[Rfam]
RNA sequence: GCAAGCUAAAGACAGUUACUGGUUAUUAUAACUAAGGAAACUCCAUCCAUCAUUACAGAACUAUAAUGUAUUAAAAGCAUAUACUGAGAAGUAUGACACUGGAGCAGAAACGAUACGUCUUUUAAUGAAUGACGAUGAUGUUAAACUGAUGGACAUUAAAAGGAUACGGUGAAACGGCUAUUCUAUAGGGUGCAAGAAUAAAGAUGCCAAUGACUACUGUAAGAGGCAAGGUAAUUCGCUAAGAUGAAUACUGUUAAACAGAAGGUGGGUUACUCUUAGCAGGC
Numbered sequence: 001g002c003a004a005g006c007u008a009a010a011g012a013c014a015g016u017u018a019c020u021g022g023u024u025a026u027u028a029u030a031a032c033u034a035a036g037g038a039a040a041c042u043c044c045a046u047c048c049a050u051c052a053u054u055a056c057a058g059a060a061c062u063a064u065a066a067u068g069u070a071u072u073a074a075a076a077g078c079a080u081a082u083a084c085u086g087a088g089a090a091g092u093a094u095g096a097c098a099c100u101g102g103a104g105c106a107g108a109a110a111c112g113a114u115a116c117g118u119c120u121u122u123u124a125a126u127g128a129a130u131g132a133c134g135a136u137g138a139u140g141u142u143a144a145a146c147u148g149a150u151g152g153a154c155a156u157u158a159a160a161a162g163g164a165u166a167c168g169g170u171g172a173a174a175c176g177g178c179u180a181u182u183c184u185a186u187a188g189g190g191u192g193c194a195a196g197a198a199u200a201a202a203g204a205u206g207c208c209a210a211u212g213a214c215u216a217c218u219g220u221a222a223g224a225g226g227c228a229a230g231g232u233a234a235u236u237c238g239c240u241a242a243g244a245u246g247a248a249u250a251c252u253g254u255u256a257a258a259c260a261g262a263a264g265g266u267g268g269g270u271u272a273c274u275c276u277u278a279g280c281a282g283g284c
Stems, first nucleotide, its partner, number of pairs: 001284002005280005010274002012254005020034005039271003043268005048192004053221001061188005066080004081094005095183002100180003116168003119162008137146001196237004205228004
This 284-nucleotide RNA sequence from Methanobrevibacter sp. AbM4 belongs to the Rfam family "Archaeal RNase P".
Its Rfam clan is "RNaseP clan".
From the family's description: Ribonuclease P (RNase P) is a ubiquitous endoribonuclease, found in archaea, bacteria and eukarya as well as chloroplasts and mitochondria. Its best characterised activity is the generation of mature 5'-ends of tRNAs by cleaving the 5'-leader elements of precursor-tRNAs. Cellular RNase Ps are ribonucleoproteins. RNA from bacterial RNase Ps retains its catalytic activity in the absence of the protein subunit, i.e. it is a ribozyme.
Rfam classes the family as a ribozyme.
Taxonomically the source falls in Methanobrevibacter (Archaea, Methanobacteriati, Methanobacteria, Methanobacteriales).
A reference for the family is Brown (1999), "The Ribonuclease P Database", Nucleic Acids Res.
The match comes from Rfam's covariance-model search (181 bits).
The family's consensus secondary structure is taken from published work.